[Rfam]
RNA: Small nucleolar RNA SNORA25
RNA sequence: AGGCCAUUUUAAAGAGGGCUCAUGGGACUAUGAAACCAAGAGCUCUUAAUGCUGUGACCAAAGAUUGAAGUUCUCUAUAGGUUGCCAAAGCACUCAGUGGUGCUGUGUUUUCCUGAGGAGAUAUAAGA
Numbered sequence: 001a002g003g004c005c006a007u008u009u010u011a012a013a014g015a016g017g018g019c020u021c022a023u024g025g026g027a028c029u030a031u032g033a034a035a036c037c038a039a040g041a042g043c044u045c046u047u048a049a050u051g052c053u054g055u056g057a058c059c060a061a062a063g064a065u066u067g068a069a070g071u072u073c074u075c076u077a078u079a080g081g082u083u084g085c086c087a088a089a090g091c092a093c094u095c096a097g098u099g100g101u102g103c104u105g106u107g108u109u110u111u112c113c114u115g116a117g118g119a120g121a122u123a124u125a126a127g128a
Stems, first nucleotide, its partner, number of pairs: 002059002005056003014047008023039001026037001072121005079114003088106001090104001091102004